RNA sequence: GGCCAAACGUGAAGUGGAGUAGAUUAGUAUGGUCAGCUGAUCCUACUAAUCGACUCAACUUCACAUUUAGGCUC
Numbered sequence: 001g002g003c004c005a006a007a008c009g010u011g012a013a014g015u016g017g018a019g020u021a022g023a024u025u026a027g028u029a030u031g032g033u034c035a036g037c038u039g040a041u042c043c044u045a046c047u048a049a050u051c052g053a054c055u056c057a058a059c060u061u062c063a064c065a066u067u068u069a070g071g072c073u074c
Stems, first nucleotide, its partner, number of pairs: 001073004005068003010063006017056004022051001024049006031042004

About this RNA:
Rfam assigns this 74-nucleotide RNA sequence from Haemonchus placei to the family "mir-5928 microRNA precursor family". The family has 5 seed sequences and 1,672 matches in Rfam 15.1. Rfam links the family to the GO terms miRNA-mediated post-transcriptional gene silencing and RISC complex.